The record is a 286-nucleotide RNA sequence from Semnornis frantzii, which matches "Metazoan signal recognition particle RNA" in Rfam.
The family is grouped with related families in Rfam's "SRP clan".
For this family Rfam cites "Towards the structure of the mammalian signal recognition particle" (Wild et al., Curr Opin Struct Biol, 2002).
RNA sequence: GCUGGGCAAGGUGGCUUUUGCCUGUAAUCCAAGCACCAGGGAGGCUCAAACUGGUGGAUUGGCUCAAGCCUGGAGUUUCUGGGCUGCAGUAGAUGUCCAUGCUGAAGCUGAUAUCAGUGUGAUGGUUCAGGGGGAACCAGGGGCCAUCAGGUUACCUAAGGAGGGAUGAACUGGCCCAGGUUGGAGAUGGAGCAGGUUGACACUCCUGUGUUGAUCAGUAAUGGGAUGCUACCUAUGAGCUGUCGCUGUAGCAGAGCCCAGGUGGGAGAGCAGGACCCAGUUUCCU
Number, nucleotide and partner (000 for none) at each position: 001g045002c044003u043004g023005g022006g021007c020008a019009a018010g017011g016012u000013g000014g000015c000016u011017u010018u009019u008020g007021c006022c005023u004024g000025u000026a000027a000028u042029c041030c040031a000032a000033g000034c000035a000036c000037c000038a000039g000040g030041g029042a028043g003044g002045c001046u000047c000048a283049a282050a281051c280052u279053g278054g277055u000056g000057g000058a000059u273060u272061g000062g271063c270064u269065c268066a000067a000068g263069c262070c261071u260072g259073g258074a000075g000076u000077u000078u000079c256080u255081g000082g000083g252084c251085u250086g249087c248088a247089g246090u235091a234092g233093a000094u231095g230096u000097c225098c224099a000100u223101g222102c000103u220104g219105a000106a000107g215108c000109u213110g212111a211112u210113a209114u208115c000116a153117g152118u151119g000120u149121g148122a147123u146124g145125g144126u143127u142128c141129a000130g000131g138132g137133g000134g000135a000136a000137c132138c131139a000140g000141g128142g127143g126144c125145c124146a123147u122148c121149a120150g000151g118152u117153u116154a000155c161156c160157u000158a000159a000160g156161g155162a207163g206164g205165g204166a000167u202168g201169a000170a000171c000172u199173g198174g197175c196176c195177c000178a000179g000180g000181u190182u189183g188184g000185a000186g000187a000188u183189g182190g181191a000192g000193c000194a000195g176196g175197u174198u173199g172200a000201c168202a167203c000204u165205c164206c163207u162208g114209u113210g112211u111212u110213g109214a000215u107216c000217a000218g000219u104220a103221a000222u101223g100224g098225g097226a000227u000228g000229c000230u095231a094232c000233c092234u091235a090236u000237g000238a000239g000240c000241u000242g000243u000244c000245g000246c089247u088248g087249u086250a085251g084252c083253a000254g000255a080256g079257c000258c073259c072260a071261g070262g069263u068264g000265g000266g000267a000268g065269a064270g063271c062272a060273g059274g000275a000276c000277c054278c053279a052280g051281u050282u049283u048284c000285c000286u000